[Rfam]
RNA sequence: UUUGAGCCAAUAAUAUAUGGGACCCCCACAGCAAAAGGGGGGAUGGGCCAAAAAAAUUUUUUUUAAAAAAAAUUCAAUAUCUCGAAGAAUCAAAUUGAUUAGAAUAAAAUUAUUAUAAGAACAAAUUUUCAAAUUUUUUGGCCCAUCCCCCCUUUUGCUGUGGGGGUCCCAUAUACUGUUUUACUA
Dot-bracket structure: ...........((((.....(((((((((((((((((((((((((((((((((((..............................................................................)))))))))))))))))))))))))))))))))))........))))......

This 186-nucleotide RNA from Dentiscutata erythropus belongs to the Rfam family "Wolbachia sRNA 46". By type it is a small RNA. It scores 66 bits against the family's covariance model.